[Rfam]
RNA: Streptomyces sRNA 4677
Organism: Streptomyces poonensis
RNA sequence: UGACCCGGUCGUGCCCGCUGCUAAAAGAAGUAAGAACCGGGGAAAGAACCAACCAAACCCCACCCCACCCGACCCCCUCACUCGAACGGGUGAGCCACGCCGACUGGGCUGGCGAUCAAGGAAGUUGGUGGGGCAAGGUCGGGCCAGAUUCGCCUUGCGAUACGACUUUCACCUCGCGAGGUGACACCGACACCGACAACCGCACAUGCGACGGCCCCCGCCGGGACGGCAAUCCCGGAGCGAGGGCCUGACCACCGAGGAAGCAGGACCUUCCCG
Numbered sequence: 001u002g003a004c005c006c007g008g009u010c011g012u013g014c015c016c017g018c019u020g021c022u023a024a025a026a027g028a029a030g031u032a033a034g035a036a037c038c039g040g041g042g043a044a045a046g047a048a049c050c051a052a053c054c055a056a057a058c059c060c061c062a063c064c065c066c067a068c069c070c071g072a073c074c075c076c077c078u079c080a081c082u083c084g085a086a087c088g089g090g091u092g093a094g095c096c097a098c099g100c101c102g103a104c105u106g107g108g109c110u111g112g113c114g115a116u117c118a119a120g121g122a123a124g125u126u127g128g129u130g131g132g133g134c135a136a137g138g139u140c141g142g143g144c145c146a147g148a149u150u151c152g153c154c155u156u157g158c159g160a161u162a163c164g165a166c167u168u169u170c171a172c173c174u175c176g177c178g179a180g181g182u183g184a185c186a187c188c189g190a191c192a193c194c195g196a197c198a199a200c201c202g203c204a205c206a207u208g209c210g211a212c213g214g215c216c217c218c219c220g221c222c223g224g225g226a227c228g229g230c231a232a233u234c235c236c237g238g239a240g241c242g243a244g245g246g247c248c249u250g251a252c253c254a255c256c257g258a259g260g261a262a263g264c265a266g267g268a269c270c271u272u273c274c275c276g
Stems, first nucleotide, its partner, number of pairs: 007256003017073001019071002078093006108188001110186002213248005219242003223236004259274005